[Rfam]
RNA sequence: UCUCAUAGUGGCUAUGACAUUAGCCCUGGUAAUAUUACCAAAACCGCGUAAUCUACGAUGAUAAUGUCUACCAAAAA
Numbered sequence: 001u002c003u004c005a006u007a008g009u010g011g012c013u014a015u016g017a018c019a020u021u022a023g024c025c026c027u028g029g030u031a032a033u034a035u036u037a038c039c040a041a042a043a044c045c046g047c048g049u050a051a052u053c054u055a056c057g058a059u060g061a062u063a064a065u066g067u068c069u070a071c072c073a074a075a076a077a
Stems, first nucleotide, its partner, number of pairs: 010025004016068006047057003
RNA: Fluoride riboswitch aptamer (crcB RNA motif)